[Rfam]
A member of the RNA family "TPP riboswitch aptamer (THI element)" from Keratinibaculum paraultunense, 109 nucleotides long. A search with the family's covariance model found it, with a score of 73 bits. Gene Ontology term of the family: thiamine pyrophosphate binding. The base pairs follow the family's consensus structure, which is taken from published work. Taxonomically the source falls in Keratinibaculum (Bacteria, Bacillati, Bacillota, Tepidimicrobiaceae).
RNA sequence: AAUACUUGUAAGGGGGGCUUAUAUUGAUAGGCUGAGAUAGGAAUGUUAUUCCUGACCCUAUGAACCUGAUUUGGGUAAUUCCAACGGAGGGAUUUAAUUUAGUCGAUUA
Numbered sequence: 001a002a003u004a005c006u007u008g009u010a011a012g013g014g015g016g017g018c019u020u021a022u023a024u025u026g027a028u029a030g031g032c033u034g035a036g037a038u039a040g041g042a043a044u045g046u047u048a049u050u051c052c053u054g055a056c057c058c059u060a061u062g063a064a065c066c067u068g069a070u071u072u073g074g075g076u077a078a079u080u081c082c083a084a085c086g087g088a089g090g091g092a093u094u095u096a097a098u099u100u101a102g103u104c105g106a107u108u109a
Stems, first nucleotide, its partner, number of pairs: 006097003010093001011059004017032005039053005065090003071084004